A member of the RNA family "mir-9014 microRNA precursor family" from Equus caballus, 87 nucleotides long. The family has 2 seed sequences and 581 matches in Rfam 15.1. The match comes from Rfam's covariance-model search (88 bits).
[Rfam]
RNA sequence: GGAGCCAUAGGGAGGGAUUCCAAUCCAGCCUCAGGAAAAGAAACCUGCCAAAGAGUCUUGGCGAUUGGCGACCAUCCUAAUGACUUA
Dot-bracket structure: .(((.(((.((((.((.(.((((((...((.......((((..(.(....).)..)))))).)))))).).)).)))).))).))).

Gene Ontology terms of the family: RISC complex and miRNA-mediated post-transcriptional gene silencing.